[Rfam]
RNA: Group II catalytic intron D1-D4-2
RNA sequence: GGCCCCCCGAAGCCGCCGUGCAGGCGGAGGCUUCAAACCGCCCACUGCGGCUGCCUUUAAGAGAGGUGGUCGUGAGCGAGCUGGGAAAAGGCCGGGCAAGACCUGGUCAGGU
Numbered sequence: 001g002g003c004c005c006c007c008c009g010a011a012g013c014c015g016c017c018g019u020g021c022a023g024g025c026g027g028a029g030g031c032u033u034c035a036a037a038c039c040g041c042c043c044a045c046u047g048c049g050g051c052u053g054c055c056u057u058u059a060a061g062a063g064a065g066g067u068g069g070u071c072g073u074g075a076g077c078g079a080g081c082u083g084g085g086a087a088a089a090g091g092c093c094g095g096g097c098a099a100g101a102c103c104u105g106g107u108c109a110g111g112u
Base pairs, nucleotide, nucleotide: 009034010033011032012031013030014029016027017026018025019024039111041085042084043083044082046079047073048072050070051069052068054066055065056064057063090108091107092106093105094104095103